[Rfam]
RNA: MIR5070 microRNA precursor family
Nucleotides: 116
Base pairs, nucleotide, nucleotide: 002115003114004113005112006111007110009108010107011106012105013104014103015102016101018099019098020097021096022095023094024093025092026091027090028089029088030087032085033084034083035082036081037080038079039078040077041076042075
Number, partner (000 for none) and nucleotide at each position: 001000c002115a003114g004113g005112g006111u007110a008000g009108c010107c011106u012105u013104u014103g015102a016101c017000a018099c019098u020097g021096c022095u023094u024093a025092g026091u027090u028089c029088a030087a031000c032085c033084a034083a035082a036081u037080g038079a039078a040077c041076u042075a043000a044000a045000a046000u047000u048000u049000u050000a051000a052000a053000a054000u055000g056000a057000c058000a059000c060000a061000a062000c063000u064000u065000u066000u067000u068000g069000g070000a071000a072000a073000a074000c075042u076041a077040g078039u079038u080037c081036a082035u083034u084033u085032g086000u087030u088029u089028g090027a091026a092025c093024u094023a095022a096021g097020u098019a099018g100000g101016g102015u103014c104013a105012g106011a107010g108009g109000g110007u111006a112005c113004c114003c115002u116000g